[Rfam]
RNA sequence: UCUCUCUUACAUGCCUUGAGUGUAGGACCGUUGGCAUCUUAAUUACCCUCCCACACCCAAGGCUUGCAGGAGGGC
Numbered sequence: 001u002c003u004c005u006c007u008u009a010c011a012u013g014c015c016u017u018g019a020g021u022g023u024a025g026g027a028c029c030g031u032u033g034g035c036a037u038c039u040u041a042a043u044u045a046c047c048c049u050c051c052c053a054c055a056c057c058c059a060a061g062g063c064u065u066g067c068a069g070g071a072g073g074g075c
Base pairs, nucleotide, nucleotide: 002074003073004072005071007069008068010066011065013063014062015061016060017059018058020056021055022054023053025051026050027049030046031045
Notes
This 75-nucleotide RNA from Equus caballus belongs to the Rfam family "mir-532 microRNA precursor family". The sequence is in the family's curated seed alignment. NCBI's taxonomy places the organism under Eukaryota, Opisthokonta, Metazoa, Vertebrata, Equus. Gene Ontology terms of the family: RISC complex, sensory perception of sound and cellular response to glucose stimulus.